[Rfam]
RNA: SAM-III riboswitch aptamer (SMK box)
Organism: Lactobacillus johnsonii
RNA sequence: UUCGGUUAAGGUCCCGAAAGGAUUCGUUUUUAACGAAGAUGCCUUGUAACCGAAAGAUGGGGGACUCUAUG
Numbered sequence: 001u002u003c004g005g006u007u008a009a010g011g012u013c014c015c016g017a018a019a020g021g022a023u024u025c026g027u028u029u030u031u032a033a034c035g036a037a038g039a040u041g042c043c044u045u046g047u048a049a050c051c052g053a054a055a056g057a058u059g060g061g062g063g064a065c066u067c068u069a070u071g
Stems, first nucleotide, its partner, number of pairs: 011065005018045004023037005050060002